Source information:
Plastid-psbM 3UTR RNA: an 87-nucleotide RNA sequence from Carpinus fangiana. The family's consensus secondary structure was predicted with LocARNA. From the family's description: Plastid psbM is a non-coding RNA (ncRNA) recognised in plastids. It was found in the three prime untranslated region (3UTR) of psbM gene, its 3UTR location suggests a role in transcript maturation. By type it is a cis-regulatory element. The literature on the family includes a 2023 paper in Plant Commun by Richter et al., "Retrograde signaling in plants: A critical review focusing on the GUN pathway and beyond". The source organism's lineage runs through Eukaryota, Pentapetalae, fabids, Fagales and Carpinus.
Nucleotides: 087
Stems, first nucleotide, its partner, number of pairs: 006051001009048015
Number, partner (000 for none) and nucleotide at each position: 001000g002000a003000u004000u005000c006051g007000a008000u009048a010047g011046u012045a013044u014043g015042g016041u017040a018039g019038a020037a021036a022035g023034a024000a025000a026000u027000a028000u029000a030000u031000g032000a033000a034023u035022c036021u037020u038019u039018c040017u041016a042015c043014c044013a045012u046011a047010c048009u049000u050000a051006u052000u053000a054000u055000u056000g057000u058000u059000a060000u061000u062000g063000u064000a065000g066000u067000g068000u069000a070000g071000u072000a073000u074000a075000u076000a077000a078000a079000g080000u081000c082000g083000u084000a085000c086000u087000g